Record summary: A member of the RNA family "L31-Firmicutes ribosomal protein leader" from Virgibacillus phasianinus, 33 nucleotides long. A search with the family's covariance model found it, with a score of 36 bits. The base pairs follow the family's consensus structure, which is taken from published work. For this family Rfam cites "Discovery of 20 novel ribosomal leader candidates in bacteria and archaea" (Eckert and Weinberg, BMC Microbiol, 2020). Rfam classes the family as a cis-regulatory leader.
[Rfam]
RNA sequence: CUCUGUCUCUAAAGGAUUCAGGGCAAAAAGGAG
Numbered sequence: 001c002u003c004u005g006u007c008u009c010u011a012a013a014g015g016a017u018u019c020a021g022g023g024c025a026a027a028a029a030g031g032a033g
Stems, first nucleotide, its partner, number of pairs: 001023005008016002